Description
A member of the RNA family "glmS glucosamine-6-phosphate activated ribozyme aptamer" from Atopobacter sp. AH10, 153 nucleotides long. The match comes from Rfam's covariance-model search (94 bits). From the family's description: This entry contains a glucosamine-6-phosphate activated ribozyme that is found in the mRNA for GlmS. GlmS is an enzyme that uses fructose-6-phosphate and glutamine to generate glucosamine-6-phosphate.
RNA sequence: UUUUAAGGAAUAGCGCCAGACCCAGGAUAGAUAGCCUGGGGGACGAGGAUGGAGUUUAUCGAAAAUUCGGCGGAUGACUCCAGGGUGUGCACUCUACAGAAACGGAAGAAAAACCUUUGUAAGAAGGCAACAGAGGCCGUUUUGGCACCAGAA
Numbered sequence: 001u002u003u004u005a006a007g008g009a010a011u012a013g014c015g016c017c018a019g020a021c022c023c024a025g026g027a028u029a030g031a032u033a034g035c036c037u038g039g040g041g042g043a044c045g046a047g048g049a050u051g052g053a054g055u056u057u058a059u060c061g062a063a064a065a066u067u068c069g070g071c072g073g074a075u076g077a078c079u080c081c082a083g084g085g086u087g088u089g090c091a092c093u094c095u096a097c098a099g100a101a102a103c104g105g106a107a108g109a110a111a112a113a114c115c116u117u118u119g120u121a122a123g124a125a126g127g128c129a130a131c132a133g134a135g136g137c138c139g140u141u142u143u144g145g146c147a148c149c150a151g152a153a
Stems, first nucleotide, its partner, number of pairs: 021040006051081005059070004082095005099143007114127005
Record summary: Pairs were carried over by alignment from the consensus structure, which is taken from published work.